[Rfam]
RNA sequence: GUGAAUAACAACAUACUGUUUCGUAUAAUCUCAAGGAUUGGCUUGAGAGUCUCUACGAGAUCACCGUAAAUGAUCUAUCUACGAAAAGGGAACCUUUAACG
Number, nucleotide and partner (000 for none) at each position: 001g000002u000003g000004a000005a000006u000007a000008a000009c000010a000011a000012c000013a000014u000015a000016c000017u000018g000019u086020u085021u084022c083023g082024u081025a080026u000027a000028a000029u048030c047031u046032c045033a044034a043035g042036g000037a000038u000039u000040g000041g000042c035043u034044u033045g032046a031047g030048a029049g000050u000051c000052u000053c000054u000055a000056c000057g000058a076059g075060a074061u073062c072063a071064c000065c000066g000067u000068a000069a000070a000071u063072g062073a061074u060075c059076u058077a000078u000079c000080u025081a024082c023083g022084a021085a020086a019087a000088g000089g000090g000091a000092a000093c000094c000095u000096u000097u000098a000099a000100c000101g000
RNA: Purine riboswitch aptamer
Organism: Paenibacillus ginsengarvi